[Rfam]
Rfam assigns this 101-nucleotide RNA from Desulfosporosinus sp. I2 to the family "TPP riboswitch aptamer (THI element)". The source organism's lineage runs through Bacteria, Bacillota, Clostridia, Eubacteriales and Desulfosporosinus. Rfam describes the family as follows. Vitamin B(1) in its active form thiamin pyrophosphate (TPP) is an essential coenzyme that is synthesised by coupling of pyrimidine and thiazole moieties in bacteria. The previously detected thiamin-regulatory element, thi box was extended, resulting in a new, highly conserved RNA secondary structure, the THI element, which is widely distributed in eubacteria and also occurs in some archaea. The base pairs follow the family's consensus structure, which is taken from published work. A search with the family's covariance model found it, with a score of 77 bits.
RNA sequence: GUCGUAUGCUAGGGGUGCCCCUCGGGGCUGAGAUGAGGAAACUCGAUCCCUUUGAACCUGAUCUGGUUAAUACCAGCGGAGGAAAGCUAAUCGUUAUGCUU
Numbered sequence: 001g002u003c004g005u006a007u008g009c010u011a012g013g014g015g016u017g018c019c020c021c022u023c024g025g026g027g028c029u030g031a032g033a034u035g036a037g038g039a040a041a042c043u044c045g046a047u048c049c050c051u052u053u054g055a056a057c058c059u060g061a062u063c064u065g066g067u068u069a070a071u072a073c074c075a076g077c078g079g080a081g082g083a084a085a086g087c088u089a090a091u092c093g094u095u096a097u098g099c100u101u
Stems, first nucleotide, its partner, number of pairs: 008087003011051004016045001017028004035044003057082003063076004